About this RNA: The record is a 184-nucleotide RNA from Clostridium sartagoforme, which matches "Lysine riboswitch aptamer" in Rfam. Rfam describes the family as follows. Riboswitches are metabolite binding domains within certain messenger RNAs that serve as precision sensors for their corresponding targets. The match comes from Rfam's covariance-model search (100 bits).
[Rfam]
RNA sequence: CUGUGAGGUAGAGGCGCAAAACCUAACAGUCUUUAGUGGAGCUUGAGAAUGCUUUGAAGCUAAGGAGAAGGAGAUUUUGCCGAAGUUUGUAAUAUUUCUCAGUAUUACUUGCUGGGUCUGUAGUUAAGAGCUGCAGGACUGUCUUAAUAAGCUUCCCGGUUUAUUAAGUUGUGCUAUCUCAAAU
Numbered sequence: 001c002u003g004u005g006a007g008g009u010a011g012a013g014g015c016g017c018a019a020a021a022c023c024u025a026a027c028a029g030u031c032u033u034u035a036g037u038g039g040a041g042c043u044u045g046a047g048a049a050u051g052c053u054u055u056g057a058a059g060c061u062a063a064g065g066a067g068a069a070g071g072a073g074a075u076u077u078u079g080c081c082g083a084a085g086u087u088u089g090u091a092a093u094a095u096u097u098c099u100c101a102g103u104a105u106u107a108c109u110u111g112c113u114g115g116g117u118c119u120g121u122a123g124u125u126a127a128g129a130g131c132u133g134c135a136g137g138a139c140u141g142u143c144u145u146a147a148u149a150a151g152c153u154u155c156c157c158g159g160u161u162u163a164u165u166a167a168g169u170u171g172u173g174c175u176a177u178c179u180c181a182a183a184u
Stems, first nucleotide, its partner, number of pairs: 006179006016080006023073002031065007084113003089108007114140002117137008143168009